[Rfam]
Nucleotides: 154
Stems, first nucleotide, its partner, number of pairs: 002084007010077002024073003028069002031066001033064001097146003102141004110135004115130002118127002
Number, partner (000 for none) and nucleotide at each position: 001000u002084u003083g004082u005081c006080c007079u008078g009000g010077c011076c012000u013000a014000u015000g016000c017000u018000u019000u020000u021000u022000c023000u024073a025072c026071u027000c028069c029068c030000c031066u032000c033064u034000g035000c036000u037000u038000u039000u040000u041000u042000g043000g044000u045000c046000c047000c048000c049000c050000u051000g052000u053000g054000c055000u056000c057000a058000g059000u060000u061000c062000u063000a064033a065000c066031a067000a068029g069028g070000u071026a072025g073024u074000c075000u076011g077010g078008c079007a080006g081005g082004a083003c084002a085000c086000a087000c088000a089000g090000c091000a092000g093000u094000c095000u096000c097146c098145u099144u100000c101000a102141g103140u104139u105138u106000a107000g108000g109000a110135g111134g112133a113132c114000u115130g116129u117000c118127u119126u120000u121000a122000g123000a124000a125000u126119a127118g128000a129116g130115c131000u132113g133112u134111c135110c136000c137000a138105a139104g140103g141102c142000a143000c144099a145098a146097g147000a148000u149000u150000a151000c152000a153000a154000u

A member of the RNA family "Small Cajal body specific RNA 11" from Homo sapiens, 154 nucleotides long. The match comes from Rfam's covariance-model search (72 bits). NCBI's taxonomy places the organism under Eukaryota, Bilateria, Theria, Primates, Homo. scaRNAs are a specific class of small nuclear RNAs which localise to the Cajal bodies and guide the modification of RNA polymerase II transcribed spliceosomal RNAs U1, U2, U4, U5 and U12. Rfam classes the family as a small Cajal body RNA. Pairs were carried over by alignment from the consensus structure, which was predicted with RNAalifold.